[Rfam]
RNA sequence: AAAGCUCUCAAAUGCAAGCUAGGUGCAACAAGUUCAAUCUUUAUGUGGCUGGUGCCCCUUAUAAGCAUCGAACUUAUUGCAACUAGCUUUCAUUUUUGAGCUUU
Numbered sequence: 001a002a003a004g005c006u007c008u009c010a011a012a013u014g015c016a017a018g019c020u021a022g023g024u025g026c027a028a029c030a031a032g033u034u035c036a037a038u039c040u041u042u043a044u045g046u047g048g049c050u051g052g053u054g055c056c057c058c059u060u061a062u063a064a065g066c067a068u069c070g071a072a073c074u075u076a077u078u079g080c081a082a083c084u085a086g087c088u089u090u091c092a093u094u095u096u097u098g099a100g101c102u103u104u
Base pairs, nucleotide, nucleotide: 001104002103003102004101005100006099007098010095011094012093013092014091016089017088018087019086020085021084022083024081025080026079027078028077030075031074032073033072034071035070037068038067039065040064041063042061043060045058047056048055049054
The family of this 104-nucleotide sequence from Prunus persica is "MIR7125 microRNA precursor family". Pairs were carried over by alignment from the consensus structure, which was predicted with RNAalifold.